RNA sequence: CCUAUGGAGAGUACACAACAAUGUGAGUAGUAUUUAGAACCAUCUAAUAUGAAAGCAUACUCGAAGAAGUAGGAA
Numbered sequence: 001c002c003u004a005u006g007g008a009g010a011g012u013a014c015a016c017a018a019c020a021a022u023g024u025g026a027g028u029a030g031u032a033u034u035u036a037g038a039a040c041c042a043u044c045u046a047a048u049a050u051g052a053a054a055g056c057a058u059a060c061u062c063g064a065a066g067a068a069g070u071a072g073g074a075a
Stems, first nucleotide, its partner, number of pairs: 001073005009062005022057003030050003035046002

A member of the RNA family "RAGATH-18 RNA", 75 nucleotides long.
Actinobacteria, Firmicutes, Fusobacteria, Thermotogae (1 example).